[Rfam]
RNA sequence: CCAUGCAUGAAUUUCAUGCAUCGGGCCUCUAGUAUACUUAUAUUAAUACUAGAGGCCCGAUGCACAAAAUUCGUGCAAGGGG
Numbered sequence: 001c002c003a004u005g006c007a008u009g010a011a012u013u014u015c016a017u018g019c020a021u022c023g024g025g026c027c028u029c030u031a032g033u034a035u036a037c038u039u040a041u042a043u044u045a046a047u048a049c050u051a052g053a054g055g056c057c058c059g060a061u062g063c064a065c066a067a068a069a070u071u072c073g074u075g076c077a078a079g080g081g082g
Stems, first nucleotide, its partner, number of pairs: 001080002004077008013068002017064019
This 82-nucleotide RNA from Cnephaeus nilssonii belongs to the Rfam family "mir-9243 microRNA precursor family". The organism belongs to Cnephaeus, within Eukaryota. Its family is annotated with miRNA-mediated post-transcriptional gene silencing and RISC complex in the Gene Ontology.